[Rfam]
RNA sequence: GGGAUUAUCUCCUGCUUGUUGAAUGCGUCCCUUGCGGGACCCUUUUGGUGUCUGAUUCAAAUGAACCGGGAGCACCAUCUACGUAGGCCAGCAAACUGAUUAAGCGAAAACACCUACGGUCUUGGACGGCCCCCGCCAGGCAGGGACCCCAAAUCUUACUUGUCUGACAGGGAUGCCAGAU
Numbered sequence: 001g002g003g004a005u006u007a008u009c010u011c012c013u014g015c016u017u018g019u020u021g022a023a024u025g026c027g028u029c030c031c032u033u034g035c036g037g038g039a040c041c042c043u044u045u046u047g048g049u050g051u052c053u054g055a056u057u058c059a060a061a062u063g064a065a066c067c068g069g070g071a072g073c074a075c076c077a078u079c080u081a082c083g084u085a086g087g088c089c090a091g092c093a094a095a096c097u098g099a100u101u102a103a104g105c106g107a108a109a110a111c112a113c114c115u116a117c118g119g120u121c122u123u124g125g126a127c128g129g130c131c132c133c134c135g136c137c138a139g140g141c142a143g144g145g146a147c148c149c150c151a152a153a154u155c156u157u158a159c160u161u162g163u164c165u166g167a168c169a170g171g172g173a174u175g176c177c178a179g180a181u
Base pairs, nucleotide, nucleotide: 002149003148005146006145011140012139013138014137027040028039029038030037031036046077047076048075049074050073051072052069053068054067056065057064058063082135083134086131087130088129089128098127100125101124102123103122104121105118163180164179165178166177168175